[Rfam]
RNA: U11 spliceosomal RNA
Organism: Microcebus murinus
RNA sequence: ACAAAGGGCUUCUGUUGUUAGUGGCACAUGUAAGGCAACUCAGUUGCUUUUUGUAUAGAAUCGACAUCAAGAGAUUUUGGAAGCAUAAUUUUUGGUAGUUGGGCAGCUGGUGAUUGUUGGUCCUGGUGUCCUU
Numbered sequence: 001a002c003a004a005a006g007g008g009c010u011u012c013u014g015u016u017g018u019u020a021g022u023g024g025c026a027c028a029u030g031u032a033a034g035g036c037a038a039c040u041c042a043g044u045u046g047c048u049u050u051u052u053g054u055a056u057a058g059a060a061u062c063g064a065c066a067u068c069a070a071g072a073g074a075u076u077u078u079g080g081a082a083g084c085a086u087a088a089u090u091u092u093u094g095g096u097a098g099u100u101g102g103g104c105a106g107c108u109g110g111u112g113a114u115u116g117u118u119g120g121u122c123c124u125g126g127u128g129u130c131c132u133u
Stems, first nucleotide, its partner, number of pairs: 008084005013026005028054003032050007056079007101131004106127005112122004